Rfam assigns this 481-nucleotide part of an RNA from Samia ricini to the family "Eukaryotic large subunit ribosomal RNA". Pairs were carried over by alignment from the consensus structure, which is taken from published work. Clan: LSU clan. Rfam's curators put it in the seed alignment. The source organism's lineage runs through Eukaryota, Eumetazoa, Eumetabola, Endopterygota and Samia.
[Rfam]
RNA sequence: CCUGCGAAACUCGAAUGAGCGAACGGAGAGAUUCAUCGUUAUUCCGCGGCGUACGCGCGCGAUAUCAAGCGAUGAAGGUCGCGGUCCUCACGGUCCCGGUGGCUUUCACGCGUCGCGCGCGUCGACGUCCUCGGACGGCGUGCACUUCUCUCUUAGUAAAGCAUCGCGACCCGUUCGCUGUCGAUCUAAGCGCCGCCCGGGAGCCCCGUCGCUCGCCCCCUCAAAGGGGUGCGCGGCGCGGACCGGUCGCGGACGCCGACCGACGCCGCGGACGGUAUGCAAAGUCGCGCGCACGCGUACUAACGCGUCCGGCCCGACGCAAGGCAACGUCGUAUCGUCCGGUCCUGCCCGAGAGCGGACCGGCGUGCGGCGCGCCUGUCCGUCGCAGCCGUGCAGUCUCGGACCUGUGCGCGCGAUCCUUAUGAUAUAUGUCUGCGAUGAUUCAGUUUCGGGCACUCGCAGGACCCGUCUUGAAACACGG
Numbered sequence: 001c002c003u004g005c006g007a008a009a010c011u012c013g014a015a016u017g018a019g020c021g022a023a024c025g026g027a028g029a030g031a032u033u034c035a036u037c038g039u040u041a042u043u044c045c046g047c048g049g050c051g052u053a054c055g056c057g058c059g060c061g062a063u064a065u066c067a068a069g070c071g072a073u074g075a076a077g078g079u080c081g082c083g084g085u086c087c088u089c090a091c092g093g094u095c096c097c098g099g100u101g102g103c104u105u106u107c108a109c110g111c112g113u114c115g116c117g118c119g120c121g122u123c124g125a126c127g128u129c130c131u132c133g134g135a136c137g138g139c140g141u142g143c144a145c146u147u148c149u150c151u152c153u154u155a156g157u158a159a160a161g162c163a164u165c166g167c168g169a170c171c172c173g174u175u176c177g178c179u180g181u182c183g184a185u186c187u188a189a190g191c192g193c194c195g196c197c198c199g200g201g202a203g204c205c206c207c208g209u210c211g212c213u214c215g216c217c218c219c220c221u222c223a224a225a226g227g228g229g230u231g232c233g234c235g236g237c238g239c240g241g242a243c244c245g246g247u248c249g250c251g252g253a254c255g256c257c258g259a260c261c262g263a264c265g266c267c268g269c270g271g272a273c274g275g276u277a278u279g280c281a282a283a284g285u286c287g288c289g290c291g292c293a294c295g296c297g298u299a300c301u302a303a304c305g306c307g308u309c310c311g312g313c314c315c316g317a318c319g320c321a322a323g324g325c326a327a328c329g330u331c332g333u334a335u336c337g338u339c340c341g342g343u344c345c346u347g348c349c350c351g352a353g354a355g356c357g358g359a360c361c362g363g364c365g366u367g368c369g370g371c372g373c374g375c376c377u378g379u380c381c382g383u384c385g386c387a388g389c390c391g392u393g394c395a396g397u398c399u400c401g402g403a404c405c406u407g408u409g410c411g412c413g414c415g416a417u418c419c420u421u422a423u424g425a426u427a428u429a430u431g432u433c434u435g436c437g438a439u440g441a442u443u444c445a446g447u448u449u450c451g452g453g454c455a456c457u458c459g460c461a462g463g464a465c466c467c468g469u470c471u472u473g474a475a476a477c478a479c480g481g
Stems, first nucleotide, its partner, number of pairs: 001463007011453002017056001020055002023052003061444002064442003466481004